[Rfam]
RNA sequence: UUCUCCGAUGAUGAUGAAAAAAUUACUUUCGUUCUUCCGAAGUUUGCAAUGUGGAACAACAAUUUGAGACCUGAACUGAGGAGAU
Numbered sequence: 001u002u003c004u005c006c007g008a009u010g011a012u013g014a015u016g017a018a019a020a021a022a023u024u025a026c027u028u029u030c031g032u033u034c035u036u037c038c039g040a041a042g043u044u045u046g047c048a049a050u051g052u053g054g055a056a057c058a059a060c061a062a063u064u065u066g067a068g069a070c071c072u073g074a075a076c077u078g079a080g081g082a083g084a085u
Base pairs, nucleotide, nucleotide: 003083004082005081006080
Shown here is an 85-nucleotide RNA from Digitaria exilis, a member of the family "Small nucleolar RNA Z159/U59". A search with the family's covariance model found it, with a score of 81 bits. The source organism's lineage runs through Eukaryota, Viridiplantae, Tracheophyta, Poales and Digitaria. Rfam links the family to the GO terms nucleolus and RNA processing. For this family Rfam cites "The high diversity of snoRNAs in plants: identification and comparative study of 120 snoRNA genes from Oryza sativa" (Chen et al., Nucleic Acids Res, 2003). The family has 10 seed sequences and 1,401 matches in Rfam 15.1.